[Rfam]
RNA sequence: AGCACAUCUUUGUGUUUUGUCUGUCGUGGUGGGCAAAAACUUGGAGUAAGUGCUAAGAAUAAACUCCUCUCUUGCAACCCACAACUGACUGAAUGUAUCAGUUGUGUUACUUAUAAGAAGGAACAUU
Numbered sequence: 001a002g003c004a005c006a007u008c009u010u011u012g013u014g015u016u017u018u019g020u021c022u023g024u025c026g027u028g029g030u031g032g033g034c035a036a037a038a039a040c041u042u043g044g045a046g047u048a049a050g051u052g053c054u055a056a057g058a059a060u061a062a063a064c065u066c067c068u069c070u071c072u073u074g075c076a077a078c079c080c081a082c083a084a085c086u087g088a089c090u091g092a093a094u095g096u097a098u099c100a101g102u103u104g105u106g107u108u109a110c111u112u113a114u115a116a117g118a119a120g121g122a123a124c125a126u127u
Base pairs, nucleotide, nucleotide: 001054002053003052004051005050007048011045014040015039016037017036018035019034020033025031065123067121068120070118071117072116073115074114080106081105082104083103084102085101086100087099088098
Shown here is a 127-nucleotide RNA sequence from Sphenodon punctatus, a member of the family "Small nucleolar RNA SNORA40". Rfam 15.1 lists 2,550 matches to the family in 517 species. It is annotated as an H/ACA-box small nucleolar RNA. Gene Ontology terms of the family: nucleolus and RNA processing. Pairs were carried over by alignment from the consensus structure, which was predicted with RNAalifold. The snoRNA ACA 40 belongs to the H/ACA family of snoRNAs and guides the pseudouridylation of 28S rRNA subunit at position U4565. NB This family has a high threshold value to exclude a large number of closely related sequences that do not appear to have conserved H and ACA boxes, and may be pseudogenes.